[Rfam]
RNA: Small nucleolar RNA SNORD75
Organism: Kryptolebias marmoratus
RNA sequence: AGUCAAUGAUUAAAAUGUGUAAGAGUAGUGGACAGAAGAGAUUUCUGAGGAUUUUUCCACAAUGAGGCU
Number, nucleotide and partner (000 for none) at each position: 001a069002g068003u067004c066005a000006a000007u000008g000009a000010u000011u000012a000013a000014a000015a000016u000017g000018u000019g000020u000021a000022a000023g000024a000025g000026u000027a000028g000029u000030g000031g000032a000033c000034a000035g000036a000037a000038g000039a000040g000041a000042u000043u000044u000045c000046u000047g000048a000049g000050g000051a000052u000053u000054u000055u000056u000057c000058c000059a000060c000061a000062a000063u000064g000065a000066g004067g003068c002069u001